[Rfam]
RNA sequence: ACAAAGGGCUUCUGUCAUGACACAUAGGGCAGCUCAUUCGCUCUACAUGUGGAAUCAACAUAAGAGAUUUCGGAAGCAUAAUUUUUGUUGUUUGGGCAGCUGGUGACCAUUGGUCCUGGUGCCCUA
Numbered sequence: 001a002c003a004a005a006g007g008g009c010u011u012c013u014g015u016c017a018u019g020a021c022a023c024a025u026a027g028g029g030c031a032g033c034u035c036a037u038u039c040g041c042u043c044u045a046c047a048u049g050u051g052g053a054a055u056c057a058a059c060a061u062a063a064g065a066g067a068u069u070u071c072g073g074a075a076g077c078a079u080a081a082u083u084u085u086u087g088u089u090g091u092u093u094g095g096g097c098a099g100c101u102g103g104u105g106a107c108c109a110u111u112g113g114u115c116c117u118g119g120u121g122c123c124c125u126a
Base pairs, nucleotide, nucleotide: 008077009076010075011074012073013022014021015020023049024048025047026044027043028042029041030040032038050072051071052070053069054068055067056066094124095123096122097121099120100119101118102117103116105115106114107113108112

This 126-nucleotide RNA sequence from Erinaceus europaeus belongs to the Rfam family "U11 spliceosomal RNA". Gene Ontology terms of the family: pre-mRNA 5'-splice site binding, U11 snRNP and mRNA 5'-splice site recognition. It is annotated as a spliceosomal small nuclear RNA.